Notes:
small Cajal body-specific RNA 17: a 136-nucleotide RNA from Cnephaeus nilssonii. It is annotated as a small Cajal body RNA. The match comes from Rfam's covariance-model search (111 bits). The base pairs follow the family's consensus structure, which is taken from published work. From the family's description: scaRNAs are a specific class of small nuclear RNAs which localise to the Cajal bodies and guide the modification of RNA polymerase II transcribed spliceosomal RNAs U1, U2, U4, U5 and U12. The complete human U12-22/U4-8 scaRNA is composed of two tandem C/D box domains (termed U12-22 and U4-8). Taxonomically the source falls in Cnephaeus (Eukaryota, Opisthokonta, Gnathostomata, Dipnotetrapodomorpha).

RNA sequence: UCCCCGGGCCCCCAGUGCAGCCCCGGAUGAGCCUGCAGUAUUUUCCUUAUAUGAUUGGGCCCCAGGGCUGGCGGCGCCGCUGGCCCGGAGCCUGAGAGGAUUAUAAAGAGUCGGCGAAGUGGGGCCGGGGCCGGGG
Numbered sequence: 001u002c003c004c005c006g007g008g009c010c011c012c013c014a015g016u017g018c019a020g021c022c023c024c025g026g027a028u029g030a031g032c033c034u035g036c037a038g039u040a041u042u043u044u045c046c047u048u049a050u051a052u053g054a055u056u057g058g059g060c061c062c063c064a065g066g067g068c069u070g071g072c073g074g075c076g077c078c079g080c081u082g083g084c085c086c087g088g089a090g091c092c093u094g095a096g097a098g099g100a101u102u103a104u105a106a107a108g109a110g111u112c113g114g115c116g117a118a119g120u121g122g123g124g125c126c127g128g129g130g131c132c133g134g135g136g
Base pairs, nucleotide, nucleotide: 002136003135005134007132008131009130010129013128020125021124022123023122024121055095056094057093058092059091060090062088063087067084068083069082070081071080072079073078